About this RNA:
This 65-nucleotide sequence from Geotrypetes seraphini belongs to the Rfam family "mir-8/mir-141/mir-200 microRNA precursor family". The match comes from Rfam's covariance-model search (47 bits). Pairs were carried over by alignment from the consensus structure, which was predicted with RNAalifold.
[Rfam]
RNA sequence: AAUUUUAUUUACCCGCCAGCUUUAGAGACCACUUUCUUCUCUAAAGCUGGCGGGUAAAUAAAAUU
Numbered sequence: 001a002a003u004u005u006u007a008u009u010u011a012c013c014c015g016c017c018a019g020c021u022u023u024a025g026a027g028a029c030c031a032c033u034u035u036c037u038u039c040u041c042u043a044a045a046g047c048u049g050g051c052g053g054g055u056a057a058a059u060a061a062a063a064u065u
Base pairs, nucleotide, nucleotide: 002064003063004062005061006060007059008058009057010056011055012054013053014052015051016050017049018048019047020046021045022044023043024042025041026040